[Rfam]
RNA: mir-1422 microRNA precursor family
Organism: Ornithorhynchus anatinus
RNA sequence: AUGAUUCUGGUUUCAAUCCAGAGCAGAAUUUUCUUUACAUGUAGAAAAUCUAGAAAACUGCAUCUGGAUUGACAUCAUGGUCAG
Number, nucleotide and partner (000 for none) at each position: 001a000002u000003g082004a081005u080006u079007c000008u077009g076010g075011u074012u000013u072014c071015a070016a069017u068018c067019c066020a065021g064022a063023g000024c000025a000026g000027a000028a000029u057030u056031u055032u054033c053034u052035u000036u000037a000038c000039a000040u000041g000042u000043a000044g000045a000046a000047a000048a000049u000050c000051u000052a034053g033054a032055a031056a030057a029058c000059u000060g000061c000062a000063u022064c021065u020066g019067g018068a017069u016070u015071g014072a013073c000074a011075u010076c009077a008078u000079g006080g005081u004082c003083a000084g000